[Rfam]
MIR9563 microRNA precursor family: a 125-nucleotide sequence from Brassica napus. The base pairs follow the family's consensus structure, which was predicted with RNAalifold. Lineage of the source: Eukaryota > Tracheophyta > Gunneridae > Brassicaceae > Brassica.
RNA sequence: GAAAUUUAAAAAUCUGUUUCUUAACUUUUAAUUAAAAAAGCUAAGAACCGAUUCUUAAAUCUCUUAUUUAAGAACCGUUUCUUAAUUUUUUUAGUUGAAAAUUAAGAGACGGAUUCUUAUGUUUC
Dot-bracket structure: (((((.(((.((((((((((((((.((((((((((((((..((((((...............................))))))..)))))))))))))).)))))))))))))).))).)))))